[Rfam]
RNA: DUF2800 RNA
RNA sequence: CCGUUAUAAAGGUGCAUCACCUGAUCAAUGAUGGCUCACGCCUUAUAGCGGACAGUAAAUAUCAGCACAGCGAUCUGAUGAGCAAGAGAGCUGCAAUCGGAAUGGAGACCACUCCAUUUGGACUGCGGUUAGGUUACUAUUGCCAUUUUUGCGCUGUACC
Numbered sequence: 001c002c003g004u005u006a007u008a009a010a011g012g013u014g015c016a017u018c019a020c021c022u023g024a025u026c027a028a029u030g031a032u033g034g035c036u037c038a039c040g041c042c043u044u045a046u047a048g049c050g051g052a053c054a055g056u057a058a059a060u061a062u063c064a065g066c067a068c069a070g071c072g073a074u075c076u077g078a079u080g081a082g083c084a085a086g087a088g089a090g091c092u093g094c095a096a097u098c099g100g101a102a103u104g105g106a107g108a109c110c111a112c113u114c115c116a117u118u119u120g121g122a123c124u125g126c127g128g129u130u131a132g133g134u135u136a137c138u139a140u141u142g143c144c145a146u147u148u149u150u151g152c153g154c155u156g157u158a159c160c
Base pairs, nucleotide, nucleotide: 001051002050003049004048005047007045008044010043011042012041013040014039015033016032017031018030019029034083035082036081037080038079068156069155070154071153072152090129091128092127093126094125102117103116104115105114106113